[Rfam]
RNA sequence: AAAACAAUUAAAUACGUUUUUCAUAUAAUCGCAAGGAUAUGGCUUGCAAGUUUCUACCGGUUCACCGUAAAUGAACUGACUAUGAAAAGUGGCUGAAUGAUC
Numbered sequence: 001a002a003a004a005c006a007a008u009u010a011a012a013u014a015c016g017u018u019u020u021u022c023a024u025a026u027a028a029u030c031g032c033a034a035g036g037a038u039a040u041g042g043c044u045u046g047c048a049a050g051u052u053u054c055u056a057c058c059g060g061u062u063c064a065c066c067g068u069a070a071a072u073g074a075a076c077u078g079a080c081u082a083u084g085a086a087a088a089g090u091g092g093c094u095g096a097a098u099g100a101u102c
Stems, first nucleotide, its partner, number of pairs: 018088008029049001031047005058078007

Rfam assigns this 102-nucleotide RNA from Ornithinibacillus bavariensis to the family "Purine riboswitch aptamer". Gene Ontology term of the family: purine nucleobase biosynthetic process. It scores 89 bits against the family's covariance model.